[Rfam]
RNA sequence: AAUGAAUGAGGACAUUUCGGUCCCAAAUGACAUCUGUGAUUACUAACUUUGAGAUCGUUCUGACAUU
Number, nucleotide and partner (000 for none) at each position: 001a067002a066003u065004g064005a000006a000007u000008g000009a000010g000011g000012a000013c000014a000015u000016u000017u000018c000019g000020g000021u000022c000023c000024c000025a000026a000027a000028u000029g000030a000031c000032a000033u000034c000035u000036g000037u000038g000039a000040u000041u000042a000043c000044u000045a000046a000047c000048u000049u000050u000051g000052a000053g000054a000055u000056c000057g000058u000059u000060c000061u000062g000063a000064c004065a003066u002067u001
Rfam assigns this 67-nucleotide RNA from Aquarana catesbeiana to the family "Small nucleolar RNA SNORD73". It is annotated as a C/D-box small nucleolar RNA. The literature on the family includes a 1998 paper in Gene by Rebane et al., "A novel snoRNA (U73) is encoded within the introns of the human and mouse ribosomal protein S3a genes". Rfam links the family to the GO terms RNA processing and nucleolus. The source organism's lineage runs through Eukaryota, Metazoa, Bilateria, Ranoidea and Aquarana. The family's consensus secondary structure was predicted with PFOLD.